[Rfam]
RNA sequence: GGGGAGACUAAUACUCAAAUAGGGAGAAGCUCUGCUCUAGUUGUCACUAGGUCUCCCUAUAUUAAAGCUGCCUUUCAAUGACUGGGACAAAUUGAGGGAAAUCGUAACGGGGCAGAUACAGGGCAUGUAGUU
Numbered sequence: 001g002g003g004g005a006g007a008c009u010a011a012u013a014c015u016c017a018a019a020u021a022g023g024g025a026g027a028a029g030c031u032c033u034g035c036u037c038u039a040g041u042u043g044u045c046a047c048u049a050g051g052u053c054u055c056c057c058u059a060u061a062u063u064a065a066a067g068c069u070g071c072c073u074u075u076c077a078a079u080g081a082c083u084g085g086g087a088c089a090a091a092u093u094g095a096g097g098g099a100a101a102u103c104g105u106a107a108c109g110g111g112g113c114a115g116a117u118a119c120a121g122g123g124c125a126u127g128u129a130g131u132u
Base pairs, nucleotide, nucleotide: 002057003056004055005054006053007052016043017042018041022037023036024035069125070124071123072122073121074120082110083109084108087105088104090102